Shown here is a 39-nucleotide sequence, a member of the family "L31-Firmicutes ribosomal protein leader".
Pairs were carried over by alignment from the consensus structure, which is taken from published work.
It is annotated as a cis-regulatory leader.
A reference for the family is Eckert and Weinberg (2020), "Discovery of 20 novel ribosomal leader candidates in bacteria and archaea", BMC Microbiol.

RNA sequence: CUAUGAUUUACUAGAAAAACCAAAUCAUGGCGGAAGGAG
Numbered sequence: 001c002u003a004u005g006a007u008u009u010a011c012u013a014g015a016a017a018a019a020c021c022a023a024a025u026c027a028u029g030g031c032g033g034a035a036g037g038a039g
Base pairs, nucleotide, nucleotide: 001030002029003028004027005026006025007024008023